Description:
Shown here is a 128-nucleotide RNA sequence, a member of the family "LOOT RNA".
RNA sequence: GACCUAACCCUUGAUUUAUCGAGAUAUGGUCGUAAAUCCUAUCCUACAUAUUAAUGGUCUUCCGACCAGUACUUGUAGGAUAGGUCUAUGCUCGAAAGGGUGUAGUGGCGUCUCCGUAAGGAUUCGUC
Numbered sequence: 001g002a003c004c005u006a007a008c009c010c011u012u013g014a015u016u017u018a019u020c021g022a023g024a025u026a027u028g029g030u031c032g033u034a035a036a037u038c039c040u041a042u043c044c045u046a047c048a049u050a051u052u053a054a055u056g057g058u059c060u061u062c063c064g065a066c067c068a069g070u071a072c073u074u075g076u077a078g079g080a081u082a083g084g085u086c087u088a089u090g091c092u093c094g095a096a097a098g099g100g101u102g103u104a105g106u107g108g109c110g111u112c113u114c115c116g117u118a119a120g121g122a123u124u125c126g127u128c
Base pairs, nucleotide, nucleotide: 001031002030003029004028010023011022012021013020014019038084039083040082041081042080043079044078045077046076047075048074052071053070055068056067057066058065086105087104088103089102090101091100092099093098107128108127109126110125
Rfam classes the family as a small RNA.